[Rfam]
RNA: ZMP/ZTP riboswitch aptamer (pfl RNA motif)
RNA sequence: CAGGGUUCGCGCGACUGGCGAGAAGAGAUGGGACACCAUCGGGGAACGCGAACCUUAGACUGCCGCUCGCCUGGGCAACCCAA
Numbered sequence: 001c002a003g004g005g006u007u008c009g010c011g012c013g014a015c016u017g018g019c020g021a022g023a024a025g026a027g028a029u030g031g032g033a034c035a036c037c038a039u040c041g042g043g044g045a046a047c048g049c050g051a052a053c054c055u056u057a058g059a060c061u062g063c064c065g066c067u068c069g070c071c072u073g074g075g076c077a078a079c080c081c082a083a
Base pairs, nucleotide, nucleotide: 003055004054005053006052007051008050009049010048011047015043016042017071018070019069020068021067028039029038030037031036061077062076063075064074